[Rfam]
RNA sequence: GCCGAGCUCAGUAACGCGGGCUUGUAACCCAAGUGGGGGCUAUGAGGUGGUGGAACUUUGGGCUUGUCUCUGAAGCUGGGCCGAAGAAGACAUUAUUUGGGCUGCCCGUUUCAAGCUGGGAGUUGGGCGAAGGUCCUUGCUCGAAGGAGCGGUGGUCUGGUCCAUUAAAUGGAGGGCAUUGCGUGAGGCUGGUUUCACAGAGCAGCGAAAACCUCUUCCUCUCAGCAAUGAAAGGAUAACAGCUCAUUGUCUUCGAGGCCCAAUAUAACUGAAGGGCUACCCAAUUGAACCACCACCUUU
Numbered sequence: 001g002c003c004g005a006g007c008u009c010a011g012u013a014a015c016g017c018g019g020g021c022u023u024g025u026a027a028c029c030c031a032a033g034u035g036g037g038g039g040c041u042a043u044g045a046g047g048u049g050g051u052g053g054a055a056c057u058u059u060g061g062g063c064u065u066g067u068c069u070c071u072g073a074a075g076c077u078g079g080g081c082c083g084a085a086g087a088a089g090a091c092a093u094u095a096u097u098u099g100g101g102c103u104g105c106c107c108g109u110u111u112c113a114a115g116c117u118g119g120g121a122g123u124u125g126g127g128c129g130a131a132g133g134u135c136c137u138u139g140c141u142c143g144a145a146g147g148a149g150c151g152g153u154g155g156u157c158u159g160g161u162c163c164a165u166u167a168a169a170u171g172g173a174g175g176g177c178a179u180u181g182c183g184u185g186a187g188g189c190u191g192g193u194u195u196c197a198c199a200g201a202g203c204a205g206c207g208a209a210a211a212c213c214u215c216u217u218c219c220u221c222u223c224a225g226c227a228a229u230g231a232a233a234g235g236a237u238a239a240c241a242g243c244u245c246a247u248u249g250u251c252u253u254c255g256a257g258g259c260c261c262a263a264u265a266u267a268a269c270u271g272a273a274g275g276g277c278u279a280c281c282c283a284a285u286u287g288a289a290c291c292a293c294c295a296c297c298u299u300u
Stems, first nucleotide, its partner, number of pairs: 001040003004023006028037003044299010056287001058284003061280001064279001066277001068276004074270002077267001078261005083254001085253001087252001089250001091249002098246007106235002109233005115226008125163004131158005137152006171216005180209001182207003189200003

The record is a 300-nucleotide sequence from Cuscuta campestris, which matches "Plant signal recognition particle RNA" in Rfam.
It scores 220 bits against the family's covariance model.
For this family Rfam cites "SRPDB: Signal Recognition Particle Database" (Rosenblad et al., Nucleic Acids Res, 2003).
Rfam classes the family as a non-coding RNA gene.